Rfam assigns this 76-nucleotide sequence from Crocodylus porosus to the family "Mammalian CPEB3 ribozyme". It scores 38 bits against the family's covariance model. The source organism's lineage runs through Eukaryota, Bilateria, Amniota, Crocodylidae and Crocodylus. Pairs were carried over by alignment from the consensus structure, which is taken from published work.
[Rfam]
RNA sequence: GUCGCACCUUAGAGGACAUAGCAAAGGCACUCACAGCAUGGCCCUGUCAGAUUUCAAUAAAUCUGCAAAUUCUGCU
Number, nucleotide and partner (000 for none) at each position: 001g000002u000003c000004g000005c000006a000007c000008c000009u000010u000011a000012g000013a000014g043015g042016a000017c040018a000019u000020a076021g075022c074023a073024a000025a071026g070027g039028c000029a000030c000031u000032c000033a000034c000035a000036g000037c000038a000039u027040g017041g000042c015043c014044c000045u000046g000047u000048c065049a064050g063051a062052u061053u060054u059055c000056a000057a000058u000059a054060a053061a052062u051063c050064u049065g048066c000067a000068a000069a000070u026071u025072c000073u023074g022075c021076u020